[Rfam]
RNA sequence: GUCCACCACCCCCGACUGAAGUCGGAGGCUUGCCGCAAGUCCAGCCCAGGUUGACCAGGGAAAGCGCUAACCAACCCGCUACGUUGCAUGGAGAGCAAAAGACCGACAUCGGGAUGCUUCUUUAGUCCCGGCCUCUCGAUGCCCAGGGUUGCAGACAACCCCGAGGGCAAGAGUGCUGGUGGGCUCCGGCAGAAGGCCGACAUGCAACAUUCCCGAGGGGAGAGGCCCCGAAAGGAGCGCCGC
Numbered sequence: 001g002u003c004c005a006c007c008a009c010c011c012c013c014g015a016c017u018g019a020a021g022u023c024g025g026a027g028g029c030u031u032g033c034c035g036c037a038a039g040u041c042c043a044g045c046c047c048a049g050g051u052u053g054a055c056c057a058g059g060g061a062a063a064g065c066g067c068u069a070a071c072c073a074a075c076c077c078g079c080u081a082c083g084u085u086g087c088a089u090g091g092a093g094a095g096c097a098a099a100a101g102a103c104c105g106a107c108a109u110c111g112g113g114a115u116g117c118u119u120c121u122u123u124a125g126u127c128c129c130g131g132c133c134u135c136u137c138g139a140u141g142c143c144c145a146g147g148g149u150u151g152c153a154g155a156c157a158a159c160c161c162c163g164a165g166g167g168c169a170a171g172a173g174u175g176c177u178g179g180u181g182g183g184c185u186c187c188g189g190c191a192g193a194a195g196g197c198c199g200a201c202a203u204g205c206a207a208c209a210u211u212c213c214c215g216a217g218g219g220g221a222g223a224g225g226c227c228c229c230g231a232a233a234g235g236a237g238c239g240c241c242g243c
Stems, first nucleotide, its partner, number of pairs: 001055003005051003010028002012025002015022002029044002032041001058214005063080004083208008093198001103138001109131007118237002120234004141190003146186004
RNA: HNH endonuclease-associated RNA and ORF (HEARO) RNA